Record summary
Rfam assigns this 107-nucleotide RNA from Prevotella sp. CAG:1185 to the family "Bacteroidales small SRP". The literature on the family includes a 2020 paper in Nat Commun by Ryan et al., "A high-resolution transcriptome map identifies small RNA regulation of metabolism in the gut microbe Bacteroides thetaiotaomicron". The match comes from Rfam's covariance-model search (117 bits). Taxonomically the source falls in Prevotella (Bacteria, Bacteroidota, Bacteroidia, Prevotellaceae). The family's consensus secondary structure is taken from published work.
RNA sequence: GCAAAACGGGUAAGUCUUGUACGGCCAGCUCCCUUCGAAUCCUCCAGGACGGGAACGUAGCAAAGGUAGUUGGUUGUAGCGGCGCGAUACAAGUAGCUUGCCCACCC
Number, nucleotide and partner (000 for none) at each position: 001g000002c000003a000004a000005a000006a000007c000008g103009g102010g101011u100012a099013a098014g097015u096016c000017u092018u091019g090020u089021a088022c086023g085024g083025c082026c000027a000028g000029c000030u000031c000032c000033c000034u000035u000036c000037g000038a000039a000040u000041c000042c000043u000044c000045c000046a000047g000048g000049a000050c000051g000052g000053g000054a000055a000056c000057g000058u000059a000060g000061c000062a000063a000064a000065g000066g000067u000068a000069g000070u000071u000072g000073g000074u000075u000076g000077u000078a000079g000080c000081g000082g025083c024084g000085c023086g022087a000088u021089a020090c019091a018092a017093g000094u000095a000096g015097c014098u013099u012100g011101c010102c009103c008104a000105c000106c000107c000